This 190-nucleotide RNA sequence belongs to the Rfam family "Manganese Mn2+ riboswitch aptamer (yybP-ykoY)". Rfam 15.1 lists 1,126 matches to the family in 1,062 species. A search with the family's covariance model found it, with a score of 46 bits. On this family, see Argaman et al., Curr Biol 2001: "Novel small RNA-encoding genes in the intergenic regions of Escherichia coli".

[Rfam]
RNA sequence: UCGUAUCCCAUUGGGGAGUAGCCGCCCUGUGCACGAUGCGCAGGGGCGUGACGUCAACAUACUUGGCCUGCGCUGUCCGCAGGGCCAUGGCGGGCGCAGCCUCGGGCCUGGCGAGACCGAUGAUCCAUGCGCUGCCUGAACAGGGCGGGCAGCAUGUGGGCCGUCGUUCGCGCAUCCACGGCCUGCGGAU
Numbered sequence: 001u002c003g004u005a006u007c008c009c010a011u012u013g014g015g016g017a018g019u020a021g022c023c024g025c026c027c028u029g030u031g032c033a034c035g036a037u038g039c040g041c042a043g044g045g046g047c048g049u050g051a052c053g054u055c056a057a058c059a060u061a062c063u064u065g066g067c068c069u070g071c072g073c074u075g076u077c078c079g080c081a082g083g084g085c086c087a088u089g090g091c092g093g094g095c096g097c098a099g100c101c102u103c104g105g106g107c108c109u110g111g112c113g114a115g116a117c118c119g120a121u122g123a124u125c126c127a128u129g130c131g132c133u134g135c136c137u138g139a140a141c142a143g144g145g146c147g148g149g150c151a152g153c154a155u156g157u158g159g160g161c162c163g164u165c166g167u168u169c170g171c172g173c174a175u176c177c178a179c180g181g182c183c184u185g186c187g188g189a190u
Stems, first nucleotide, its partner, number of pairs: 026044003046097004052092005064087005098190001100188002103185002